[Rfam]
RNA sequence: UGAGUGUUAUGAUGUUGGCGGUGUGCCUGAGUUAAUAAUCAAUUUAUAUUGAUUGUUGAGUAGCAUUGCUUAGUCUAGCUCUGUCCGCUUCUUGAAUAUCAAGCUGUGG
Numbered sequence: 001u002g003a004g005u006g007u008u009a010u011g012a013u014g015u016u017g018g019c020g021g022u023g024u025g026c027c028u029g030a031g032u033u034a035a036u037a038a039u040c041a042a043u044u045u046a047u048a049u050u051g052a053u054u055g056u057u058g059a060g061u062a063g064c065a066u067u068g069c070u071u072a073g074u075c076u077a078g079c080u081c082u083g084u085c086c087g088c089u090u091c092u093u094g095a096a097u098a099u100c101a102a103g104c105u106g107u108g109g
Stems, first nucleotide, its partner, number of pairs: 002081004011075003017070008085109004091103003

Rfam assigns this 109-nucleotide RNA from Lactococcus fujiensis to the family "L17 ribosomal protein downstream element". The source organism's lineage runs through Bacteria, Bacillota, Streptococcaceae, Lactococcus and Lactococcus fujiensis.